A member of the RNA family "U1 spliceosomal RNA" from Triticum aestivum, 159 nucleotides long.
Rfam classes the family as a spliceosomal small nuclear RNA.
Rfam's curators write: U1 is a small nuclear RNA (snRNA) component of the spliceosome (involved in pre-mRNA splicing).
NCBI's taxonomy places the organism under Eukaryota, Tracheophyta, Poaceae, Triticeae, Triticum.
It scores 117 bits against the family's covariance model.

[Rfam]
RNA sequence: UAACUUACCUGGACGGGUCGACGACUGAUCAUGAAGAGUCGUGGCCUAGGCUAGUGGUCCACAUUGCAUUUGGUGGAUGCGCUGGCUUACCAUCUCCUCGAGUGGAAGAGUGGACGUCAUAAUUUAUGAUAGAGGGGGUACGCGUUCGCGCGGCCCCUA
Numbered sequence: 001u002a003a004c005u006u007a008c009c010u011g012g013a014c015g016g017g018u019c020g021a022c023g024a025c026u027g028a029u030c031a032u033g034a035a036g037a038g039u040c041g042u043g044g045c046c047u048a049g050g051c052u053a054g055u056g057g058u059c060c061a062c063a064u065u066g067c068a069u070u071u072g073g074u075g076g077a078u079g080c081g082c083u084g085g086c087u088u089a090c091c092a093u094c095u096c097c098u099c100g101a102g103u104g105g106a107a108g109a110g111u112g113g114a115c116g117u118c119a120u121a122a123u124u125u126a127u128g129a130u131a132g133a134g135g136g137g138g139u140a141c142g143c144g145u146u147c148g149c150g151c152g153g154c155c156c157c158u159a
Stems, first nucleotide, its partner, number of pairs: 012118004016046005022041005048088003052085001054082003060076001061074002090113003093109003097105002134158005141152004